[Rfam]
RNA sequence: ACACGGAAGGGAGGUGGUCCAGGAAGUGAUUUCUCAUUGGACGCGUGAGGUGACUGCGCGCUAGUCGUGCACCUCUGCCGAGGUCGCGCCGACCGGCGCAAUCCCAGCAGCUCACCGCAGCCCGCGGGCCGUGCAGGUCGUCCCCUGCACAUGCCUUCCUCCCGACCGCAGUGGUCGUGUGGGUGGCAGGCCCGCGGGCUGUUCCAU
Numbered sequence: 001a002c003a004c005g006g007a008a009g010g011g012a013g014g015u016g017g018u019c020c021a022g023g024a025a026g027u028g029a030u031u032u033c034u035c036a037u038u039g040g041a042c043g044c045g046u047g048a049g050g051u052g053a054c055u056g057c058g059c060g061c062u063a064g065u066c067g068u069g070c071a072c073c074u075c076u077g078c079c080g081a082g083g084u085c086g087c088g089c090c091g092a093c094c095g096g097c098g099c100a101a102u103c104c105c106a107g108c109a110g111c112u113c114a115c116c117g118c119a120g121c122c123c124g125c126g127g128g129c130c131g132u133g134c135a136g137g138u139c140g141u142c143c144c145c146u147g148c149a150c151a152u153g154c155c156u157u158c159c160u161c162c163c164g165a166c167c168g169c170a171g172u173g174g175u176c177g178u179g180u181g182g183g184u185g186g187c188a189g190g191c192c193c194g195c196g197g198g199c200u201g202u203u204c205c206a207u
Stems, first nucleotide, its partner, number of pairs: 014057005059098004064093002067089004072083003118201013132149006